Overview
This 65-nucleotide sequence from Budvicia aquatica belongs to the Rfam family "DnaX ribosomal frameshifting element". The base pairs follow the family's consensus structure, which is taken from published work. This family represents a ribosomal frameshifting element found in the mRNA of the dnaX gene in E. coli. On this family, see Blinkova et al., J Bacteriol 1997: "Conservation of the Escherichia coli dnaX programmed ribosomal frameshift signal in Salmonella typhimurium".
[Rfam]
RNA sequence: AGCAGGGGGCGUCAGACGCAAAAAAGAAUGAGCCGGCAGCGCAGUUAAAAGCGCGGCCGGCGUCU
Numbered sequence: 001a002g003c004a005g006g007g008g009g010c011g012u013c014a015g016a017c018g019c020a021a022a023a024a025a026g027a028a029u030g031a032g033c034c035g036g037c038a039g040c041g042c043a044g045u046u047a048a049a050a051g052c053g054c055g056g057c058c059g060g061c062g063u064c065u
Stems, first nucleotide, its partner, number of pairs: 032061006039054002